Description: Rfam assigns this 88-nucleotide RNA from Caenorhabditis elegans to the family "mir-44 microRNA precursor family". Rfam links the family to the GO terms RISC complex and miRNA-mediated post-transcriptional gene silencing. The literature on the family includes a 2009 paper in Genome Res by de Wit et al., "Repertoire and evolution of miRNA genes in four divergent nematode species". Rfam 15.1 lists 66 matches to the family in 44 species. NCBI's taxonomy places the organism under Eukaryota, Chromadorea, Rhabditomorpha, Peloderinae, Caenorhabditis. The sequence is in the family's curated seed alignment.

RNA sequence: CAUGUGCCACGCUGGAUGUGCUCGUUAGUCAUAAUAUCCUCCACAAAGCAAGGACUAUGACUAGAGACACAUUCAGCUUGGCGCCGAA
Numbered sequence: 001c002a003u004g005u006g007c008c009a010c011g012c013u014g015g016a017u018g019u020g021c022u023c024g025u026u027a028g029u030c031a032u033a034a035u036a037u038c039c040u041c042c043a044c045a046a047a048g049c050a051a052g053g054a055c056u057a058u059g060a061c062u063a064g065a066g067a068c069a070c071a072u073u074c075a076g077c078u079u080g081g082c083g084c085c086g087a088a
Base pairs, nucleotide, nucleotide: 005083006082007081008080009079012076013075014074015073016072017071018070019069020068022067023066027062028061029060030059031058032057033056